[Rfam]
RNA sequence: AUAAAUAUUAAAUAAUUUGCUCGUAUAACCUGAACGAAUGGGUUCAGGGUUUCUACAGGGUCCGAUAAUUUCCCGGCUACGAGUCUCUUACAUCCUAAG
Numbered sequence: 001a002u003a004a005a006u007a008u009u010a011a012a013u014a015a016u017u018u019g020c021u022c023g024u025a026u027a028a029c030c031u032g033a034a035c036g037a038a039u040g041g042g043u044u045c046a047g048g049g050u051u052u053c054u055a056c057a058g059g060g061u062c063c064g065a066u067a068a069u070u071u072c073c074c075g076g077c078u079a080c081g082a083g084u085c086u087c088u089u090a091c092a093u094c095c096u097a098a099g
Stems, first nucleotide, its partner, number of pairs: 019084007029048007058074003
Dot-bracket structure: ..................(((((((...(((((((......))))))).........(((...........)))...)))))))...............